The record is a 79-nucleotide sequence from Bacillus spizizenii, which matches "Bacillus sRNA ncr982" in Rfam. The organism belongs to Bacillus spizizenii, within Bacteria. Pairs were carried over by alignment from the consensus structure, which is taken from published work.
[Rfam]
RNA sequence: GGUGUAAACAUGAUGUUCUUUUUCCUCCUAUUCAGGCUCGCACCCAAAAGUCAGGGCGAGCCUGCUUUUUUGUACAAUA
Number, nucleotide and partner (000 for none) at each position: 001g000002g011003u010004g009005u000006a000007a000008a000009c004010a003011u002012g000013a000014u000015g000016u000017u000018c000019u000020u000021u000022u000023u000024c000025c000026u000027c000028c000029u000030a000031u000032u000033c064034a063035g062036g061037c060038u059039c058040g057041c056042a000043c055044c054045c000046a000047a000048a000049a000050g000051u000052c000053a000054g044055g043056g041057c040058g039059a038060g037061c036062c035063u034064g033065c000066u000067u000068u000069u000070u000071u000072g000073u000074a000075c000076a000077a000078u000079a000